c-di-AMP riboswitch aptamer (ydaO/yuaA leader): a 180-nucleotide RNA from Cohnella faecalis. Lineage of the source: Bacteria > Bacillati > Bacilli > Caryophanales > Cohnella.

[Rfam]
RNA sequence: CGCGUCGUAUCGCUGAAUUUCCGAACUUGGGAAAACGGGGGAACCGAGCGCGCAGGCUGAACGGUGUCAGCAGCCUUCGCAUGGGGUGAAUCUUUCCGAGACGUUUGUCUUGGAGGUAGGGCGAGCCUUCUUGCCGUCCGAAUCCGUCAGCUAACCUCGUAAGCGUAGAAGGAGGAGUGA
Dot-bracket structure: ..........((((...(((((.......)))))((((((....((...................................))(((.....((((.................))))..((((.............))))...))).........)))))).))))...............